[Rfam]
RNA sequence: GCCAAUGAUGACUUAAUCCAUCUUGUCUGAGACGUUGUGGAGCCAAGCCCCUGUUUCAGGGAGAACCUACUUGGUGAAACUAUGUUCAUAAGAUUUUAAUGGAUUCAACUGAGGU
Numbered sequence: 001g002c003c004a005a006u007g008a009u010g011a012c013u014u015a016a017u018c019c020a021u022c023u024u025g026u027c028u029g030a031g032a033c034g035u036u037g038u039g040g041a042g043c044c045a046a047g048c049c050c051c052u053g054u055u056u057c058a059g060g061g062a063g064a065a066c067c068u069a070c071u072u073g074g075u076g077a078a079a080c081u082a083u084g085u086u087c088a089u090a091a092g093a094u095u096u097u098a099a100u101g102g103a104u105u106c107a108a109c110u111g112a113g114g115u
Stems, first nucleotide, its partner, number of pairs: 001115003049061005
RNA: Small nucleolar RNA Z278
Organism: Cucurbita maxima